[Rfam]
RNA sequence: GGCUUUCUGAAUCCGUGCUGAGAUUUUGUCAAACACCGACCCAGCAGGGUGAUGAGACUCCCGAGAUAAGUGAAGUG
Numbered sequence: 001g002g003c004u005u006u007c008u009g010a011a012u013c014c015g016u017g018c019u020g021a022g023a024u025u026u027u028g029u030c031a032a033a034c035a036c037c038g039a040c041c042c043a044g045c046a047g048g049g050u051g052a053u054g055a056g057a058c059u060c061c062c063g064a065g066a067u068a069a070g071u072g073a074a075g076u077g
Stems, first nucleotide, its partner, number of pairs: 002076005008070001011067003016063002020060003024057007

Rfam assigns this 77-nucleotide RNA from Schistosoma japonicum to the family "mir-3492 microRNA precursor family". The organism belongs to Schistosoma, within Eukaryota. The base pairs follow the family's consensus structure, which was predicted with RNAalifold. Its family is annotated with miRNA-mediated post-transcriptional gene silencing and RISC complex in the Gene Ontology.